Selenocysteine transfer RNA: a 94-nucleotide RNA from Desulforamulus ruminis. The family's consensus secondary structure is taken from published work. On this family, see Mizutani and Goto, FEBS Lett 2000: "Eukaryotic selenocysteine tRNA has the 9/4 secondary structure". The source organism's lineage runs through Bacteria, Bacillati, Clostridia, Desulforamulus and Desulforamulus ruminis.
RNA sequence: GGGGGUGGAUGGUGCCUGGUGGUGCUCCUGGUCUUCAAAACCAGUCGUUGGGCAGCGUUCCUGUCCAUGCUAGGUUCGAUUCCUAGACACUCCC
Numbered sequence: 001g002g003g004g005g006u007g008g009a010u011g012g013u014g015c016c017u018g019g020u021g022g023u024g025c026u027c028c029u030g031g032u033c034u035u036c037a038a039a040a041c042c043a044g045u046c047g048u049u050g051g052g053c054a055g056c057g058u059u060c061c062u063g064u065c066c067a068u069g070c071u072a073g074g075u076u077c078g079a080u081u082c083c084u085a086g087a088c089a090c091u092c093c094c
Stems, first nucleotide, its partner, number of pairs: 001094007011026006027047001028044005049067005071085004